[Rfam]
RNA sequence: UUCUUAUCCAGAGUGGCGGAGGGACUGGCCCGAUGAAGCCCGGCAACCCCUUUAGGGUGGGUGCCAAUUCCGGAAGAAUACUUUGUAUUCUUUAAGAUGAGAA
Numbered sequence: 001u002u003c004u005u006a007u008c009c010a011g012a013g014u015g016g017c018g019g020a021g022g023g024a025c026u027g028g029c030c031c032g033a034u035g036a037a038g039c040c041c042g043g044c045a046a047c048c049c050c051u052u053u054a055g056g057g058u059g060g061g062u063g064c065c066a067a068u069u070c071c072g073g074a075a076g077a078a079u080a081c082u083u084u085g086u087a088u089u090c091u092u093u094a095a096g097a098u099g100a101g102a103a
Stems, first nucleotide, its partner, number of pairs: 001103008013041001015040003021031003025073004042065004047061002049057003069095001074092006
This 103-nucleotide RNA from Sulfobacillus thermosulfidooxidans belongs to the Rfam family "SAM riboswitch aptamer (S box leader)". The literature on the family includes a 2021 paper in Nucleic Acids Res by Huang et al., "Structure and folding of four putative kink turns identified in structured RNA species in a test of structural prediction rules". The base pairs follow the family's consensus structure, which is taken from published work. Rfam links the family to the GO term regulation of gene expression. Rfam's curators write: The SAM riboswitch is found upstream of a number of genes which code for proteins involved in methionine or cysteine biosynthesis in Gram-positive bacteria. NCBI's taxonomy places the organism under Bacteria, Bacillota, Clostridia, Sulfobacillus, Sulfobacillus thermosulfidooxidans.